The family of this 66-nucleotide sequence from Oceanobacillus zhaokaii is "Bacillaceae-1 RNA". A search with the family's covariance model found it, with a score of 36 bits. It is annotated as a small RNA.
Nucleotides: 066
Base pairs, nucleotide, nucleotide: 011048012047013046014045015044016043017042024038025037026036027035052066053065054064055063056062
Number, partner (000 for none) and nucleotide at each position: 001000a002000c003000a004000a005000a006000g007000g008000a009000a010000u011048g012047u013046u014045c015044g016043a017042c018000a019000a020000g021000a022000c023000c024038g025037c026036c027035a028000c029000a030000u031000c032000g033000u034000u035027u036026g037025g038024c039000a040000a041000c042017g043016u044015c045014g046013a047012a048011c049000c050000a051000c052066c053065c054064c055063a056062c057000g058000u059000u060000c061000c062056g063055u064054g065053g066052g